[Rfam]
RNA sequence: AGCUCGUAGUUGGAUUUCAUGCGGGGUUCAGCGGUGUGUGGUGGGGGAGAGACACUGUUUCGCCCUUGCCCCGCACUGUUUGCACUCUGCAGUUUUAAUAUUCCCUGGUGGCGCCUUUGGCGCGUGCCCUUGAUUGGGUGUGUGUCAAGUCACGUAGUGGUGGGGCGCUGUUGGGGGCUUUACUUUGAAAAAAUUAGAGUGUUCAAAGCAGGCAGUCAUUUGAUUUGCUUGAAUAGAUUAGCAUGGAACAACGGAAGAGGACUUUUGGGCCUGUACUGUUGGCGUGUGGUGCGGGGUGUGUGGAGUGAGAAACCGCAAGGUUCUCUUGUUCCUCCCUCACCACAUCGGGUCUGAAGUAAUGAUUAAUAGGGACGGUUGGGGGCACUGGUAUUUCGUUGUCAGAGGUGAAAUUCUUGGAUUUACGAAAGACCGCCGACUGCGAAAGCAUUUGCCAAGGACGCUUUCAUUGAUCAAGAACGAAAGUUAGGGGAUCGAAGACGAUUAGAUACCGUCGUAGUCUUAACCAUAAACGAU
Numbered sequence: 001a002g003c004u005c006g007u008a009g010u011u012g013g014a015u016u017u018c019a020u021g022c023g024g025g026g027u028u029c030a031g032c033g034g035u036g037u038g039u040g041g042u043g044g045g046g047g048a049g050a051g052a053c054a055c056u057g058u059u060u061c062g063c064c065c066u067u068g069c070c071c072c073g074c075a076c077u078g079u080u081u082g083c084a085c086u087c088u089g090c091a092g093u094u095u096u097a098a099u100a101u102u103c104c105c106u107g108g109u110g111g112c113g114c115c116u117u118u119g120g121c122g123c124g125u126g127c128c129c130u131u132g133a134u135u136g137g138g139u140g141u142g143u144g145u146c147a148a149g150u151c152a153c154g155u156a157g158u159g160g161u162g163g164g165g166c167g168c169u170g171u172u173g174g175g176g177g178c179u180u181u182a183c184u185u186u187g188a189a190a191a192a193a194u195u196a197g198a199g200u201g202u203u204c205a206a207a208g209c210a211g212g213c214a215g216u217c218a219u220u221u222g223a224u225u226u227g228c229u230u231g232a233a234u235a236g237a238u239u240a241g242c243a244u245g246g247a248a249c250a251a252c253g254g255a256a257g258a259g260g261a262c263u264u265u266u267g268g269g270c271c272u273g274u275a276c277u278g279u280u281g282g283c284g285u286g287u288g289g290u291g292c293g294g295g296g297u298g299u300g301u302g303g304a305g306u307g308a309g310a311a312a313c314c315g316c317a318a319g320g321u322u323c324u325c326u327u328g329u330u331c332c333u334c335c336c337u338c339a340c341c342a343c344a345u346c347g348g349g350u351c352u353g354a355a356g357u358a359a360u361g362a363u364u365a366a367u368a369g370g371g372a373c374g375g376u377u378g379g380g381g382g383c384a385c386u387g388g389u390a391u392u393u394c395g396u397u398g399u400c401a402g403a404g405g406u407g408a409a410a411u412u413c414u415u416g417g418a419u420u421u422a423c424g425a426a427a428g429a430c431c432g433c434c435g436a437c438u439g440c441g442a443a444a445g446c447a448u449u450u451g452c453c454a455a456g457g458a459c460g461c462u463u464u465c466a467u468u469g470a471u472c473a474a475g476a477a478c479g480a481a482a483g484u485u486a487g488g489g490g491a492u493c494g495a496a497g498a499c500g501a502u503u504a505g506a507u508a509c510c511g512u513c514g515u516a517g518u519c520u521u522a523a524c525c526a527u528a529a530a531c532g533a534u
Stems, first nucleotide, its partner, number of pairs: 002478001004476002009471003369465004373460002376457002381453004387431002391427006398420001402413003439446002483524006493517001497513004